A member of the RNA family "Y RNA" from Otolemur garnettii, 102 nucleotides long. Y RNAs are components of the Ro ribonucleoprotein particle (Ro RNP), in association with Ro60 and La proteins. The Y RNAs and Ro60 and La proteins are well conserved, but the function of the Ro RNP is not known. In humans the RNA component can be one of four small RNAs -- hY1, hY3, hY4 and hY5. These small RNAs are predicted to fold into a conserved secondary structure containing three stem structures. A search with the family's covariance model found it, with a score of 52 bits.
[Rfam]
Nucleotides: 102
Base pairs, nucleotide, nucleotide: 001098002097003096004095005094006093007092008091010090011089014086018079019078022076029063030062032060033059
Number, partner (000 for none) and nucleotide at each position: 001098g002097g003096c004095u005094g006093g007092u008091c009000c010090g011089a012000g013000u014086g015000c016000c017000c018079u019078g020000g021000u022076g023000u024000u025000u026000a027000c028000a029063a030062u031000g032060a033059a034000u035000u036000g037000a038000u039000c040000a041000c042000a043000a044000c045000c046000a047000g048000u049000u050000a051000c052000a053000g054000a055000u056000u057000c058000c059033u060032u061000u062030g063029u064000c065000c066000c067000u068000u069000c070000u071000c072000u073000a074000c075000u076022c077000g078019c079018a080000c081000u082000g083000u084000u085000u086014c087000a088000c089011u090010u091008g092007a093006c094005u095004a096003g097002u098001c099000u100000u101000a102000a

About this RNA:
The family's consensus secondary structure is taken from published work. It is annotated as a non-coding RNA gene. NCBI's taxonomy places the organism under Eukaryota, Metazoa, Euteleostomi, Theria, Otolemur.